Background: The record is a 72-nucleotide sequence from Bandicoot papillomatosis carcinomatosis virus type 2, which matches "bpcv-mir-B1 microRNA precursor family" in Rfam. It is one of the family's seed sequences. Pairs were carried over by alignment from the consensus structure, which was predicted with RNAalifold. Taxonomically the source falls in non-primate mammal papillomaviruses (Viruses, Floreoviria, Shotokuvirae, Papovaviricetes).
[Rfam]
RNA sequence: UUGCACGAUAGCUCUCAGGCUUAGUACUUUAUAAACCGAAAGUAUAUAAUACUGUGCUUGAGAGUGCGCGGU
Numbered sequence: 001u002u003g004c005a006c007g008a009u010a011g012c013u014c015u016c017a018g019g020c021u022u023a024g025u026a027c028u029u030u031a032u033a034a035a036c037c038g039a040a041a042g043u044a045u046a047u048a049a050u051a052c053u054g055u056g057c058u059u060g061a062g063a064g065u066g067c068g069c070g071g072u
Stems, first nucleotide, its partner, number of pairs: 001071004006066001011065010022054004026043005